[Rfam]
RNA: R2 RNA element
RNA sequence: AAGUUACCGAUAGGAUUAGAAAAGCGGUGGCAUUACCAUAUCAAGGGGAUAUGGUAUUAGGUCCAUUUCUCCAUUUUUAAGUGUUUUUUUUUUAAUGCCAGGAGGUGUUUAGUCCGUAGACGUACUUAAGUACGAAUCGGGCAUAUGUUGAGCGACGGCGCUUUGCAUAUCUUACGAAGAUUCACCCACCAUGGUU
Numbered sequence: 001a002a003g004u005u006a007c008c009g010a011u012a013g014g015a016u017u018a019g020a021a022a023a024g025c026g027g028u029g030g031c032a033u034u035a036c037c038a039u040a041u042c043a044a045g046g047g048g049a050u051a052u053g054g055u056a057u058u059a060g061g062u063c064c065a066u067u068u069c070u071c072c073a074u075u076u077u078u079a080a081g082u083g084u085u086u087u088u089u090u091u092u093u094a095a096u097g098c099c100a101g102g103a104g105g106u107g108u109u110u111a112g113u114c115c116g117u118a119g120a121c122g123u124a125c126u127u128a129a130g131u132a133c134g135a136a137u138c139g140g141g142c143a144u145a146u147g148u149u150g151a152g153c154g155a156c157g158g159c160g161c162u163u164u165g166c167a168u169a170u171c172u173u174a175c176g177a178a179g180a181u182u183c184a185c186c187c188a189c190c191a192u193g194g195u196u
Base pairs, nucleotide, nucleotide: 034056035055036054037053038052039051040050041049042048063194064193065192066191101190102189104186105185106184112142113141114140115139116138121134122133123132124131125130144169145168146167147166148165